Shown here is a 183-nucleotide sequence from Pleuronectes platessa, a member of the family "Small nucleolar RNA SNORA81". Pairs were carried over by alignment from the consensus structure, which was predicted with WAR. Taxonomically the source falls in Pleuronectes (Eukaryota, Teleostomi, Eurypterygia, Ctenosquamata). Its family is annotated with nucleolus and RNA processing in the Gene Ontology. Rfam classes the family as an H/ACA-box small nucleolar RNA.
[Rfam]
RNA sequence: CCCUUCUGCAUUAACAGAAGUCUGCUAUAAUUGUGUGAUCCAGAUUUGAUCUGUUUCAUGCAAUAAUGCUAGCAAACUAUUGCGCAGAAGGAGAUCCAAAUGCACUGCACUGAAAAUGAGAUGUGGUCGAACCUCUUUCUUAAUGUUCAUUGGCUACUUUUCUCAAGGUGCAGUGCCACAAUU
Dot-bracket structure: ...................((.(((((..((((..(((..(((((...)))))..))).....))))..))))).))........................((((((((..............(.(..(((..............)))..).)...............)))))))).......